[Rfam]
RNA sequence: GGAGAAGCAAAAUGAUGAGUAGUACUAGCUGGAGCCCCAAAGAGGCACGUGUGAGUGUGUGUGUGUGUGUGUGUGUGUACCUGUAUUCUUAUCUGUGCAUGCACACUUAUGUCUGGGAGUAUGAAUGUGUGUGGCUGGUCAUAGGAAAUUAGCUAUGUGUCUUCUGUUGGGCCAUGACAGUUAAACUGAUAAGAUCUGAUUGCUUC
Numbered sequence: 001g002g003a004g005a006a007g008c009a010a011a012a013u014g015a016u017g018a019g020u021a022g023u024a025c026u027a028g029c030u031g032g033a034g035c036c037c038c039a040a041a042g043a044g045g046c047a048c049g050u051g052u053g054a055g056u057g058u059g060u061g062u063g064u065g066u067g068u069g070u071g072u073g074u075g076u077g078u079a080c081c082u083g084u085a086u087u088c089u090u091a092u093c094u095g096u097g098c099a100u101g102c103a104c105a106c107u108u109a110u111g112u113c114u115g116g117g118a119g120u121a122u123g124a125a126u127g128u129g130u131g132u133g134g135c136u137g138g139u140c141a142u143a144g145g146a147a148a149u150u151a152g153c154u155a156u157g158u159g160u161c162u163u164c165u166g167u168u169g170g171g172c173c174a175u176g177a178c179a180g181u182u183a184a185a186c187u188g189a190u191a192a193g194a195u196c197u198g199a200u201u202g203c204u205u206c
Base pairs, nucleotide, nucleotide: 004206005205006204007203008202009201010200014196015195016194026183027182028181029180030179031178036117037116038115039114041112043110045108049104050103051102052101053100055098056097061093065088067086068085069084070083071082119132120131121130122129135152136151137150138149139148154176155175156174157173159172160171161170162169

A member of the RNA family "Small nucleolar RNA ZL1" from Ictidomys tridecemlineatus, 206 nucleotides long. Taxonomically the source falls in Ictidomys (Eukaryota, Deuterostomia, Glires, Sciuromorpha). The match comes from Rfam's covariance-model search (177 bits). From the family's description: Host gene TRRAP. Predicted target U2@U47. Only GU-rich region is homologous to other known snoRNAs. Conserved in vertebrates.